[Rfam]
RNA sequence: GUCGCGGCUGCGGGACGUCAAAAACCAAAGAACCUAGGUAAAUAACCAACCCAACCCAACCAAACCCCGGGCAGGUCACCCACACGGGUGAUCUCGCCCUGGACGGCUGGCUUUUGGUGCGUUCGGAGAGGCAGGCUCAGCCUCAACAACACCACACAUGAGACGGCCCCCGGCCGGGACUGGCAUCCCGAUCCGAGGACCUGACCAGCAAGGAAGAAAAGGCUUCCCG
Numbered sequence: 001g002u003c004g005c006g007g008c009u010g011c012g013g014g015a016c017g018u019c020a021a022a023a024a025c026c027a028a029a030g031a032a033c034c035u036a037g038g039u040a041a042a043u044a045a046c047c048a049a050c051c052c053a054a055c056c057c058a059a060c061c062a063a064a065c066c067c068c069g070g071g072c073a074g075g076u077c078a079c080c081c082a083c084a085c086g087g088g089u090g091a092u093c094u095c096g097c098c099c100u101g102g103a104c105g106g107c108u109g110g111c112u113u114u115u116g117g118u119g120c121g122u123u124c125g126g127a128g129a130g131g132c133a134g135g136c137u138c139a140g141c142c143u144c145a146a147c148a149a150c151a152c153c154a155c156a157c158a159u160g161a162g163a164c165g166g167c168c169c170c171c172g173g174c175c176g177g178g179a180c181u182g183g184c185a186u187c188c189c190g191a192u193c194c195g196a197g198g199a200c201c202u203g204a205c206c207a208g209c210a211a212g213g214a215a216g217a218a219a220a221g222g223c224u225u226c227c228c229g
Base pairs, nucleotide, nucleotide: 004209005208007206013067076091077090078089079088080087081086106141107140108139109138110137165201166200168198169197171195172194173193176189177188178187179186212227213226214225215224216223

The family of this 229-nucleotide sequence from Streptomyces paludis is "Streptomyces sRNA 4677". Rfam classes the family as a small RNA. On this family, see Hindra et al., PLoS One 2014: "Complex intra-operonic dynamics mediated by a small RNA in Streptomyces coelicolor". Rfam describes the family as follows. Located in the intergenic region between anti-sigma factor SCO4677 gene and a putative regulatory protein gene SCO4676. scr4677 expression requires the SCO4677 activity and scr4677 sRNA itself seem to affect the levels of the SCO4676-associated transcripts. The family has 12 seed sequences and 563 matches in Rfam 15.1. Lineage of the source: Bacteria > Actinomycetes > Kitasatosporales > Streptomycetaceae > Streptomyces.